[Rfam]
RNA: mir-8799 microRNA precursor family
RNA sequence: GUGUGUGUGCAGGAUCCUGGGCUGUGUACCCCGGCGCCCUGGGCUCCGGGGCCUGCACCGCUGGAAUCGCGCUCCAGGGGCUGCGCAGCCCCCU
Numbered sequence: 001g002u003g004u005g006u007g008u009g010c011a012g013g014a015u016c017c018u019g020g021g022c023u024g025u026g027u028a029c030c031c032c033g034g035c036g037c038c039c040u041g042g043g044c045u046c047c048g049g050g051g052c053c054u055g056c057a058c059c060g061c062u063g064g065a066a067u068c069g070c071g072c073u074c075c076a077g078g079g080g081c082u083g084c085g086c087a088g089c090c091c092c093c094u
Base pairs, nucleotide, nucleotide: 001093003091005089009086010085012082013081016078017077019075020074021073023071024070025069026068027065030064031063032060033059034058036056037055041053043052044051045050